[Rfam]
RNA sequence: GUACUUAUACAUUAUUUCGUUCGUAUAAUAUUGGGAAUAGGGCCCAAGAGUUUCUACCAGACCCCCGGAAAGGGUCUGACUACGAACAAUAGUCAGGUAUAU
Numbered sequence: 001g002u003a004c005u006u007a008u009a010c011a012u013u014a015u016u017u018c019g020u021u022c023g024u025a026u027a028a029u030a031u032u033g034g035g036a037a038u039a040g041g042g043c044c045c046a047a048g049a050g051u052u053u054c055u056a057c058c059a060g061a062c063c064c065c066c067g068g069a070a071a072g073g074g075u076c077u078g079a080c081u082a083c084g085a086a087c088a089a090u091a092g093u094c095a096g097g098u099a100u101a102u
Stems, first nucleotide, its partner, number of pairs: 019087007029049001031047005058078007
RNA: Purine riboswitch aptamer
Organism: Salisediminibacterium beveridgei